[Rfam]
Notes: The record is an 81-nucleotide RNA sequence from Paenibacillus larvae, which matches "ZMP/ZTP riboswitch aptamer (pfl RNA motif)" in Rfam.
RNA sequence: GAGCCCCGGUGUAACUGGCGACAGGUGGAGCGAACCACAUGGAAGCACCGGGGAAUACGGCCGGUCGCCUGGGCAAAGAGC
Numbered sequence: 001g002a003g004c005c006c007c008g009g010u011g012u013a014a015c016u017g018g019c020g021a022c023a024g025g026u027g028g029a030g031c032g033a034a035c036c037a038c039a040u041g042g043a044a045g046c047a048c049c050g051g052g053g054a055a056u057a058c059g060g061c062c063g064g065u066c067g068c069c070u071g072g073g074c075a076a077a078g079a080g081c
Stems, first nucleotide, its partner, number of pairs: 004053009015042002017069005025038004060074003